[Rfam]
RNA sequence: GUUUCCCUGCCUGGUUCGCCAAGGCCAUUAAUUCCUUGAACCGAUAAGCAUUGCUUGGUGCGGGAUAUGCCGUGUGGGCGAGCGCGUCUUCCAGCGCACAGCAGGCGACGAAAGUCGUGUGCUCCCUGUGCCGGUGAUGUACCCAAAAUGCGGCUUCCGCAGCCACUCUGAACCAUACUUGGGUUCAGGAGGCGGGUCUAGCGGCCGAGGUGGGGACCCA
Numbered sequence: 001g002u003u004u005c006c007c008u009g010c011c012u013g014g015u016u017c018g019c020c021a022a023g024g025c026c027a028u029u030a031a032u033u034c035c036u037u038g039a040a041c042c043g044a045u046a047a048g049c050a051u052u053g054c055u056u057g058g059u060g061c062g063g064g065a066u067a068u069g070c071c072g073u074g075u076g077g078g079c080g081a082g083c084g085c086g087u088c089u090u091c092c093a094g095c096g097c098a099c100a101g102c103a104g105g106c107g108a109c110g111a112a113a114g115u116c117g118u119g120u121g122c123u124c125c126c127u128g129u130g131c132c133g134g135u136g137a138u139g140u141a142c143c144c145a146a147a148a149u150g151c152g153g154c155u156u157c158c159g160c161a162g163c164c165a166c167u168c169u170g171a172a173c174c175a176u177a178c179u180u181g182g183g184u185u186c187a188g189g190a191g192g193c194g195g196g197u198c199u200a201g202c203g204g205c206c207g208a209g210g211u212g213g214g215g216a217c218c219c220a
Stems, first nucleotide, its partner, number of pairs: 004216008012207004017203003032191004037187006057164002060160006070153006
Source information:
A member of the RNA family "6S / SsrS RNA" from Ralstonia pseudosolanacearum, 220 nucleotides long. The source organism's lineage runs through Bacteria, Pseudomonadota, Betaproteobacteria, Burkholderiaceae and Ralstonia pseudosolanacearum. The base pairs follow the family's consensus structure, which is taken from published work. Rfam describes the family as follows. E. coli 6S RNA was the first non coding RNA to be sequenced, but its function was unknown until recently. The family's RNA type in Rfam is non-coding RNA gene.